[Rfam]
RNA: Small nucleolar RNA U2-30
RNA sequence: GAGCAAUGACGAAAAGGUUUUACUACAGACCUUUAUAAAGAUUUCUACACUUGAUCUGAGCUCU
Numbered sequence: 001g002a003g004c005a006a007u008g009a010c011g012a013a014a015a016g017g018u019u020u021u022a023c024u025a026c027a028g029a030c031c032u033u034u035a036u037a038a039a040g041a042u043u044u045c046u047a048c049a050c051u052u053g054a055u056c057u058g059a060g061c062u063c064u
Base pairs, nucleotide, nucleotide: 001063002062003061004060013034014033015032016031017030018029019028